Annotation: A member of the RNA family "SAM riboswitch aptamer (S box leader)" from Bacillus sp. FJAT-18017, 102 nucleotides long. The family's consensus secondary structure is taken from published work. The organism belongs to Bacillus, within Bacteria.
RNA sequence: UUCUUAUCCAGAGAGGUUGAGGGACUGGCCCUAUGACACCUCGGCAGCGGACAAAUAAGUCUGUGCUAAUUCCAGCAAGCGUAAAAGCUUGGAAGAUAAGAA
Number, nucleotide and partner (000 for none) at each position: 001u102002u101003c100004u099005u098006a097007u096008c095009c000010a000011g000012a000013g042014a041015g040016g039017u038018u000019g000020a000021g031022g030023g029024a000025c075026u074027g073028g072029c023030c022031c021032u000033a000034u000035g000036a000037c000038a017039c016040c015041u014042c013043g067044g066045c065046a064047g000048c063049g062050g061051a060052c059053a000054a000055a000056u000057a000058a000059g052060u051061c050062u049063g048064u046065g045066c044067u043068a000069a000070u000071u094072c028073c027074a026075g025076c091077a090078a089079g088080c087081g000082u000083a000084a000085a000086a000087g080088c079089u078090u077091g076092g000093a000094a071095g008096a007097u006098a005099a004100g003101a002102a001